[Rfam]
This 81-nucleotide RNA from Sporolactobacillus inulinus belongs to the Rfam family "Bacillaceae-1 RNA". Taxonomically the source falls in Sporolactobacillus inulinus (Bacteria, Bacillota, Sporolactobacillaceae, Sporolactobacillus). It scores 42 bits against the family's covariance model. It is annotated as a small RNA.
RNA sequence: UGUAAAGGGACUUCCGCUAAAGGCGUGGAUCCUGUGAAAGUACGUCCUGUUCACAACGCGGAAGUCACCGCAUCCUGCGGA
Numbered sequence: 001u002g003u004a005a006a007g008g009g010a011c012u013u014c015c016g017c018u019a020a021a022g023g024c025g026u027g028g029a030u031c032c033u034g035u036g037a038a039a040g041u042a043c044g045u046c047c048u049g050u051u052c053a054c055a056a057c058g059c060g061g062a063a064g065u066c067a068c069c070g071c072a073u074c075c076u077g078c079g080g081a
Stems, first nucleotide, its partner, number of pairs: 011064007025054006068080004
Dot-bracket structure: ..........(((((((.......((((((..................))))))...)))))))...((((.....)))).